RNA sequence: AUAAUGAUACUUCCGUCCAGCCACAGUCCGAGCGUUAAAAGCGUCGCAGGCAAUGGGGACGGCCCGUCAGUAUGGGGGGAGGUGAAAUUCCUAUGA
Numbered sequence: 001a002u003a004a005u006g007a008u009a010c011u012u013c014c015g016u017c018c019a020g021c022c023a024c025a026g027u028c029c030g031a032g033c034g035u036u037a038a039a040a041g042c043g044u045c046g047c048a049g050g051c052a053a054u055g056g057g058g059a060c061g062g063c064c065c066g067u068c069a070g071u072a073u074g075g076g077g078g079g080a081g082g083u084g085a086a087a088u089u090c091c092u093a094u095g096a
Stems, first nucleotide, its partner, number of pairs: 012093001013062006063079003067075003080092003

Rfam assigns this 96-nucleotide sequence to the family "pemK RNA". Rfam classes the family as a cis-regulatory element.